Notes: Shown here is a 67-nucleotide RNA from Virgisporangium aurantiacum, a member of the family "Transposase-2 RNA". Rfam 15.1 lists 214 matches to the family in 110 species. It scores 55 bits against the family's covariance model. The family's consensus secondary structure is taken from published work. Taxonomically the source falls in Virgisporangium (Bacteria, Actinomycetota, Micromonosporales, Micromonosporaceae).

[Rfam]
RNA sequence: GAAGCGUCCACCCGGCACCGCGCCUGCGGGCAAGACCGGGACCGUCCCGCCGCAAGGCGAGACAUCC
Numbered sequence: 001g002a003a004g005c006g007u008c009c010a011c012c013c014g015g016c017a018c019c020g021c022g023c024c025u026g027c028g029g030g031c032a033a034g035a036c037c038g039g040g041a042c043c044g045u046c047c048c049g050c051c052g053c054a055a056g057g058c059g060a061g062a063c064a065u066c067c
Stems, first nucleotide, its partner, number of pairs: 011040005018029004044063003048059004